[Rfam]
RNA sequence: GGAGUCAGCCAGGCAACCGCUCCGUUCCGAUCGGGACGGGGAGGAAAGUCCGGGCUCCAUAGGGCAGGGUGCCAGGUAACGCCUGGGGGGCGCGAGUCCACGGAAAGUGCCACAGAAAAGAUACCGCCGAUCCCGCAUUCGUUGCGGGAGGUAAGGGUGAAAUGGUGCGGUAAGAGCGCACCGCGCUGGUGGCAACAUCAGUGGCAGGGUAAACCCCACCCGGAGCAAGACCAAAUAGGGGAACGGCAGCUCAGGCUGCGGCGCGCGGCCCGCGUGCGUUCCCGGGUAGGUCGCUCGAGGCAUGCGGCGACGCAUGUCCCAGAUGAAUGGUUGUCCUUCGACAGAACCCGGCUUAUCGGCUGACUCCCUCC
Numbered sequence: 001g002g003a004g005u006c007a008g009c010c011a012g013g014c015a016a017c018c019g020c021u022c023c024g025u026u027c028c029g030a031u032c033g034g035g036a037c038g039g040g041g042a043g044g045a046a047a048g049u050c051c052g053g054g055c056u057c058c059a060u061a062g063g064g065c066a067g068g069g070u071g072c073c074a075g076g077u078a079a080c081g082c083c084u085g086g087g088g089g090g091c092g093c094g095a096g097u098c099c100a101c102g103g104a105a106a107g108u109g110c111c112a113c114a115g116a117a118a119a120g121a122u123a124c125c126g127c128c129g130a131u132c133c134c135g136c137a138u139u140c141g142u143u144g145c146g147g148g149a150g151g152u153a154a155g156g157g158u159g160a161a162a163u164g165g166u167g168c169g170g171u172a173a174g175a176g177c178g179c180a181c182c183g184c185g186c187u188g189g190u191g192g193c194a195a196c197a198u199c200a201g202u203g204g205c206a207g208g209g210u211a212a213a214c215c216c217c218a219c220c221c222g223g224a225g226c227a228a229g230a231c232c233a234a235a236u237a238g239g240g241g242a243a244c245g246g247c248a249g250c251u252c253a254g255g256c257u258g259c260g261g262c263g264c265g266c267g268g269c270c271c272g273c274g275u276g277c278g279u280u281c282c283c284g285g286g287u288a289g290g291u292c293g294c295u296c297g298a299g300g301c302a303u304g305c306g307g308c309g310a311c312g313c314a315u316g317u318c319c320c321a322g323a324u325g326a327a328u329g330g331u332u333g334u335c336c337u338u339c340g341a342c343a344g345a346a347c348c349c350g351g352c353u354u355a356u357c358g359g360c361u362g363a364c365u366c367c368c369u370c371c
Base pairs, nucleotide, nucleotide: 001367002366003365004364005363006362007361008360009359010358011356012335013334014333015332016331017330018329020041021040022039023038024037025036026035027034028033046354047353048352050351051350052349053348054347055225056224057223058222062271063270064269065268067221068220069219070218071217072086073085074084075083076082087101088099089098090097091096102216103215107214108213109210110209111208124156125155126152127151128150131149132148133147134146135145136144164182165181166180167179168178169177183205184203185202186201187200188199189198190197191196229292230291231290232289239283240282241281242280243279244278262276263275264274265273266272299318300317301316302315303314304313305312306311
RNA: Bacterial RNase P class A